[Rfam]
Annotation
The family of this 67-nucleotide RNA from Bombyx mori is "mir-2774 microRNA precursor family". The match comes from Rfam's covariance-model search (62 bits). Rfam links the family to the GO terms RISC complex and miRNA-mediated post-transcriptional gene silencing.

RNA sequence: AUAGCUUUUGGACUGUCAGUCUACGGAGAAAUUAUAUCCGCUCUGUGGAAGAUCUUCCCUUUGUCGU
Numbered sequence: 001a002u003a004g005c006u007u008u009u010g011g012a013c014u015g016u017c018a019g020u021c022u023a024c025g026g027a028g029a030a031a032u033u034a035u036a037u038c039c040g041c042u043c044u045g046u047g048g049a050a051g052a053u054c055u056u057c058c059c060u061u062u063g064u065c066g067u
Stems, first nucleotide, its partner, number of pairs: 004064002010058003015053003020049009